Rfam assigns this 161-nucleotide RNA sequence from Paenibacillus sp. yr247 to the family "c-di-AMP riboswitch aptamer (ydaO/yuaA leader)".
RNA sequence: AGACAAAAAAUGCCGAAUCUCGGAGCAGCGAUAGCUCCGGUACGGGGGACUUCUUUACUUGGGGUGAAUGAAUGCUCAGCUACUUUAGUUAACUGAGCGAGCUAGGGAAAACCUCUUCCCGAACCCGUCAACUAACCUCGGAGGCUUCAAGGAGGCAAAGC
Numbered sequence: 001a002g003a004c005a006a007a008a009a010a011u012g013c014c015g016a017a018u019c020u021c022g023g024a025g026c027a028g029c030g031a032u033a034g035c036u037c038c039g040g041u042a043c044g045g046g047g048g049a050c051u052u053c054u055u056u057a058c059u060u061g062g063g064g065u066g067a068a069u070g071a072a073u074g075c076u077c078a079g080c081u082a083c084u085u086u087a088g089u090u091a092a093c094u095g096a097g098c099g100a101g102c103u104a105g106g107g108a109a110a111a112c113c114u115c116u117u118c119c120c121g122a123a124c125c126c127g128u129c130a131a132c133u134a135a136c137c138u139c140g141g142a143g144g145c146u147u148c149a150a151g152g153a154g155g156c157a158a159a160g161c
Stems, first nucleotide, its partner, number of pairs: 012145003019040002043140005052061001062126003074102004105120004

Taxonomically the source falls in Paenibacillus (Bacteria, Bacilli, Caryophanales, Paenibacillaceae). A search with the family's covariance model found it, with a score of 71 bits. Rfam links the family to the GO terms regulation of gene expression and cyclic-di-AMP binding.